[Rfam]
RNA sequence: ACUGGUGACUAUGAUGACUGAACUUUUUUCCCCAGCAGAGCGAUAGUGUUGACUGCUGUUUUAAAUAAGCCAAACUGUCUGAGUCCCCAGU
Numbered sequence: 001a002c003u004g005g006u007g008a009c010u011a012u013g014a015u016g017a018c019u020g021a022a023c024u025u026u027u028u029u030c031c032c033c034a035g036c037a038g039a040g041c042g043a044u045a046g047u048g049u050u051g052a053c054u055g056c057u058g059u060u061u062u063a064a065a066u067a068a069g070c071c072a073a074a075c076u077g078u079c080u081g082a083g084u085c086c087c088c089a090g091u
Stems, first nucleotide, its partner, number of pairs: 001091005007085003